[Rfam]
RNA sequence: GGCCAGGUCCUAUGCGAUGAUGGACGGGCGAAUCCCGCCAGGACCGGAAGGUAGCAACGGUAGUCACGCUCCACAUGCGCCGUAGGGUGCCUGGCCACC
Numbered sequence: 001g002g003c004c005a006g007g008u009c010c011u012a013u014g015c016g017a018u019g020a021u022g023g024a025c026g027g028g029c030g031a032a033u034c035c036c037g038c039c040a041g042g043a044c045c046g047g048a049a050g051g052u053a054g055c056a057a058c059g060g061u062a063g064u065c066a067c068g069c070u071c072c073a074c075a076u077g078c079g080c081c082g083u084a085g086g087g088u089g090c091c092u093g094g095c096c097a098c099c
Base pairs, nucleotide, nucleotide: 004093005092006091007090008089009086010085011084012083013082014081015077017076018075019074022071027065028064029063035060036059037058043052044051045050
A member of the RNA family "Bacterial small signal recognition particle RNA" from Pelagicoccus mobilis, 99 nucleotides long. The family is grouped with related families in Rfam's "SRP clan". It scores 62 bits against the family's covariance model.